Rfam assigns this 125-nucleotide RNA from Pseudohalioglobus lutimaris to the family "Ribosomal S15 leader". The E. coli Ribosomal S15 gene 5' UTR can form two alternative structures. One that is a series of three hairpins, The other includes a pseudoknot. This structure causes translational regulation of the S15 protein. The alignment of this family contains only the final two hairpins which are conserved in other species, and also includes the complete region that forms the alternate structures. Pairs were carried over by alignment from the consensus structure, which is taken from published work. Clan: Ribosomal Protein S15 Leader clan.

[Rfam]
RNA sequence: CGGACAGGCUCUUUUAUUGAUGAAGGGUGGUAUUCCACCCGAGGCAGAUUAUUCAAGAGGAAUAGAAAAUGGCUUUGAAUGCUGAACAGAAAGCAACAAUCGUAAAAGAUUACCAGGUGGGUGAA
Number, nucleotide and partner (000 for none) at each position: 001c000002g000003g000004a000005c000006a000007g000008g028009c027010u026011c025012u024013u000014u000015u000016a000017u000018u000019g000020a000021u000022g000023a000024a012025g011026g010027g009028u008029g000030g000031u000032a000033u000034u000035c000036c000037a000038c000039c000040c000041g000042a000043g000044g000045c000046a000047g000048a000049u000050u000051a000052u079053u078054c077055a000056a000057g076058a075059g074060g073061a000062a000063u000064a000065g000066a000067a000068a000069a000070u000071g000072g000073c060074u059075u058076u057077g054078a053079a052080u000081g000082c000083u000084g000085a000086a000087c000088a000089g000090a000091a000092a000093g000094c000095a000096a000097c000098a000099a000100u000101c000102g000103u000104a000105a000106a000107a000108g000109a000110u000111u000112a000113c000114c000115a000116g000117g000118u000119g000120g000121g000122u000123g000124a000125a000